[Rfam]
Nucleotides: 302
Stems, first nucleotide, its partner, number of pairs: 001302004007296003012257007020072005035057004040052001081286005091227001099113005114129006130225006148209003258274007
Number, partner (000 for none) and nucleotide at each position: 001302c002301g003300a004299a005000c006000g007296a008295a009294a010000a011000g012257c013256u014255u015254g016253u017252g018251u019000u020072a021071a022070g023069g024068g025000g026000a027000a028000a029000c030000a031000u032000a033000c034000g035057g036056a037055c038054a039000a040052c041000g042000u043000g044000u045000u046000u047000a048000u049000u050000c051000c052040g053000c054038u055037g056036u057035c058000a059000a060000u061000u062000u063000u064000u065000u066000u067000a068024c069023c070022c071021u072020u073000g074000g075000g076000a077000a078000g079000g080000u081286c082285u083284g084283a085282g086000a087000a088000a089000a090000a091227c092000u093000a094000u095000a096000u097000a098000a099113g100112u101111c102110u103109c104000u105000a106000g107000c108000u109103g110102a111101g112100a113099c114129a115128c116127u117126c118125a119124u120000g121000a122000g123000a124119a125118u126117g127116a128115g129114u130225g131224c132223g133222a134221a135220c136000a137000a138000c139000c140000a141000g142000a143000a144000a145000c146000g147000g148209u149208a150207c151000c152000c153000u154000c155000c156000u157000u158000g159000g160000u161000u162000u163000g164000u165000a166000a167000g168000u169000a170000u171000g172000a173000a174000g175000u176000c177000u178000u179000u180000a181000u182000g183000a184000c185000u186000g187000a188000u189000u190000g191000u192000u193000u194000u195000c196000c197000u198000a199000c200000c201000a202000a203000u204000g205000g206000a207150g208149u209148g210000u211000u212000g213000a214000a215000a216000c217000g218000u219000g220135g221134u222133u223132c224131g225130c226000u227091g228000g229000u230000g231000g232000a233000a234000g235000u236000u237000c238000u239000a240000u241000g242000a243000a244000g245000u246000g247000c248000a249000a250000u251018a252017c253016a254015c255014a256013a257012g258274a259273c260272a261271u262270u263269a264268c265000a266000a267000u268264g269263u270262g271261a272260u273259g274258u275000a276000a277000c278000u279000c280000a281000a282085u283084u284083c285082a286081g287000a288000c289000u290000a291000c292000u293000c294009u295008u296007u297000u298000g299004u300003u301002c302001g
Source information: Nuclear RNase P: a 302-nucleotide RNA sequence from Glomus cerebriforme. The match comes from Rfam's covariance-model search (134 bits). The family is grouped with related families in Rfam's "RNaseP clan". The family's RNA type in Rfam is ribozyme.